[Rfam]
RNA sequence: AAGCAUUCUGAAGACCUGUCUACAAGGCUACUGACUGAGAACGUAGUUUCUCUCAUUCCCGCCUUGGGGAAAGUCCCCGGACACAUGCCAGAGACGGCCUUGCGUGAUAGCAAUGAGACGGUUUGCAGAUACCAUACAGCGAAGAAGUUCUCCGGAACCGAGCUUGGUGCCAGCGAAUUGCUUUCGUCAGUGUGCUAGUAAUGCAGGUGGUGUAAACACAUGAACAGAACGGGGCUCAUUCUCAGAAUGCA
Numbered sequence: 001a002a003g004c005a006u007u008c009u010g011a012a013g014a015c016c017u018g019u020c021u022a023c024a025a026g027g028c029u030a031c032u033g034a035c036u037g038a039g040a041a042c043g044u045a046g047u048u049u050c051u052c053u054c055a056u057u058c059c060c061g062c063c064u065u066g067g068g069g070a071a072a073g074u075c076c077c078c079g080g081a082c083a084c085a086u087g088c089c090a091g092a093g094a095c096g097g098c099c100u101u102g103c104g105u106g107a108u109a110g111c112a113a114u115g116a117g118a119c120g121g122u123u124u125g126c127a128g129a130u131a132c133c134a135u136a137c138a139g140c141g142a143a144g145a146a147g148u149u150c151u152c153c154g155g156a157a158c159c160g161a162g163c164u165u166g167g168u169g170c171c172a173g174c175g176a177a178u179u180g181c182u183u184u185c186g187u188c189a190g191u192g193u194g195c196u197a198g199u200a201a202u203g204c205a206g207g208u209g210g211u212g213u214a215a216a217c218a219c220a221u222g223a224a225c226a227g228a229a230c231g232g233g234g235c236u237c238a239u240u241c242u243c244a245g246a247a248u249g250c251a
Base pairs, nucleotide, nucleotide: 003250004249005248006247007246008245009244010243011242014208015207016206017205018204019203023066024065025064026063027062028061037052038051039050040049041048072236073235075234076233077232078231087098088097089096100113101112102111103110115181117179122177123176124175125174126173130169131168132167138164139163140162147158148157149156150155210221211220212219213218
This 251-nucleotide RNA from Synaphobranchus kaupii belongs to the Rfam family "RNase MRP". RNase MRP is an enzymatically active ribonucleoprotein with two distinct roles in eukaryotes. Rfam links the family to the GO terms ribonuclease MRP activity, ribonuclease MRP complex and rRNA processing. It scores 129 bits against the family's covariance model.